[Rfam]
RNA sequence: UCUGGUAAUGAUGACAAACUUGCCCUCACUGAGAACACUGUUCUAUAAUGAGAACUCAAAUCGUACUCAAACCUGAAUCGGA
Numbered sequence: 001u002c003u004g005g006u007a008a009u010g011a012u013g014a015c016a017a018a019c020u021u022g023c024c025c026u027c028a029c030u031g032a033g034a035a036c037a038c039u040g041u042u043c044u045a046u047a048a049u050g051a052g053a054a055c056u057c058a059a060a061u062c063g064u065a066c067u068c069a070a071a072c073c074u075g076a077a078u079c080g081g082a
Base pairs, nucleotide, nucleotide: 001082002081003080004079005078006077

Shown here is an 82-nucleotide RNA from Leptobrachium leishanense, a member of the family "Small nucleolar RNA SNORD103/SNORD85". It is annotated as a C/D-box small nucleolar RNA. Rfam 15.1 lists 1,349 matches to the family in 595 species. The match comes from Rfam's covariance-model search (66 bits).